[Rfam]
RNA sequence: CUCUUAUCAAGAGUGGUGGAGGGACUGGCCCUAUGAAACCCGGCAACCGGUAUUCUCAUGUGAAUACAGCGGUGCCAAUUCCUACAAUGUAGACGUUGAUAGAUGAGAG
Numbered sequence: 001c002u003c004u005u006a007u008c009a010a011g012a013g014u015g016g017u018g019g020a021g022g023g024a025c026u027g028g029c030c031c032u033a034u035g036a037a038a039c040c041c042g043g044c045a046a047c048c049g050g051u052a053u054u055c056u057c058a059u060g061u062g063a064a065u066a067c068a069g070c071g072g073u074g075c076c077a078a079u080u081c082c083u084a085c086a087a088u089g090u091a092g093a094c095g096u097u098g099a100u101a102g103a104u105g106a107g108a109g
Stems, first nucleotide, its partner, number of pairs: 001109008013041001015040003021031003027082002042076004047072002050067005080101001085098005
About this RNA: Rfam assigns this 109-nucleotide RNA sequence from Clostridium oryzae to the family "SAM riboswitch aptamer (S box leader)".